[Rfam]
Description:
Group II catalytic intron D1-D4-1: a 74-nucleotide RNA from Microvirga tunisiensis.
RNA sequence: GAGCGGGUCGCAAGAUCCGUGAUCGGGGCGGAGAAGUCAGCAGACGGCAUAGUAGGCCGAGAAGGCCGAAGGCC
Numbered sequence: 001g002a003g004c005g006g007g008u009c010g011c012a013a014g015a016u017c018c019g020u021g022a023u024c025g026g027g028g029c030g031g032a033g034a035a036g037u038c039a040g041c042a043g044a045c046g047g048c049a050u051a052g053u054a055g056g057c058c059g060a061g062a063a064g065g066c067c068g069a070a071g072g073c074c
Stems, first nucleotide, its partner, number of pairs: 003020007036045003046074003055067004
From the family's description: Group II introns are found in rRNA, tRNA and mRNA of organelles in fungi, plants and protists, and also in mRNA in bacteria. It scores 52 bits against the family's covariance model.